[Rfam]
RNA sequence: GUGUCGGUUUAGCUCAACGGUUACUUCUCGAACAAAUUCUCCGUAACUCCAGAGUUGCGGGUUCGACCAUGGGCGCUGUCCGAUGCUUUU
Numbered sequence: 001g002u003g004u005c006g007g008u009u010u011a012g013c014u015c016a017a018c019g020g021u022u023a024c025u026u027c028u029c030g031a032a033c034a035a036a037u038u039c040u041c042c043g044u045a046a047c048u049c050c051a052g053a054g055u056u057g058c059g060g061g062u063u064c065g066a067c068c069a070u071g072g073g074c075g076c077u078g079u080c081c082g083a084u085g086c087u088u089u090u
Stems, first nucleotide, its partner, number of pairs: 002085006012074004017070001019068002026066002
Dot-bracket structure: .((((((....((((.(.((.....((.....................................)))).))))).....)))))).....
RNA: Vault RNA